[Rfam]
RNA sequence: UCUAGUGGCAUUGUACCCAGAGUCUGCCCUUCAGACAUUGUACCUGGAGCUGGGGGCCAAAAUAAAAGGUAGGC
Numbered sequence: 001u002c003u004a005g006u007g008g009c010a011u012u013g014u015a016c017c018c019a020g021a022g023u024c025u026g027c028c029c030u031u032c033a034g035a036c037a038u039u040g041u042a043c044c045u046g047g048a049g050c051u052g053g054g055g056g057c058c059a060a061a062a063u064a065a066a067a068g069g070u071a072g073g074c
Base pairs, nucleotide, nucleotide: 006052007051008050009049017047018046019045020044022036023035024034025033026032
The family of this 74-nucleotide RNA sequence from Vombatus ursinus is "U1A polyadenylation inhibition element (PIE)". The organism belongs to Vombatus, within Eukaryota. The family's RNA type in Rfam is cis-regulatory element. A reference for the family is Clerte and Hall (2004), "Global and Local Dynamics of the U1A Polyadenylation Inhibition Element (PIE) RNA and PIE RNA-U1A Complexes", Biochemistry. Rfam links the family to the GO term regulation of mRNA polyadenylation. It scores 58 bits against the family's covariance model. This family represents the U1A polyadenylation inhibition element (PIE). PIE is a regulatory RNA which is responsible for the regulation of the length of the polyA tail of the U1A pre-mRNA. The PIE is located in the U1A mRNA 3' UTR. PIE adopts a U-shaped structure, with binding sites for a single U1A protein at each bend and when complexed with the two proteins it blocks activity of poly(A) polymerase (PAP), and inhibits its activity.